[Rfam]
RNA sequence: UGUCCCAUUUUAGUACCACUUAUUCGCUUUCCAGAAUUAGUGGCUAUGCUAAUGGGAUAGAGAAAGCUGCUGUGUGGACUGGAAGGGAAGAUAUUUUUGCAUCUUCUCUCAUAUGAAACAACAGAACAAAUCUAC
Number, nucleotide and partner (000 for none) at each position: 001u000002g000003u000004c056005c055006c054007a053008u000009u000010u000011u000012a000013g000014u000015a000016c043017c042018a041019c040020u000021u000022a000023u000024u000025c000026g000027c000028u000029u000030u000031c000032c000033a000034g000035a000036a000037u000038u000039a000040g019041u018042g017043g016044c000045u000046a000047u000048g000049c000050u000051a000052a000053u007054g006055g005056g004057a000058u000059a000060g000061a000062g000063a000064a000065a000066g000067c000068u000069g000070c000071u000072g122073u120074g119075u000076g000077g000078a000079c000080u000081g000082g000083a000084a000085g000086g000087g000088a000089a109090g108091a107092u000093a000094u000095u000096u000097u000098u000099g000100c000101a000102u000103c000104u000105u000106c000107u091108c090109u089110c000111a000112u000113a000114u000115g000116a000117a000118a000119c074120a073121a000122c072123a000124g000125a000126a000127c000128a000129a000130a000131u000132c000133u000134a000135c000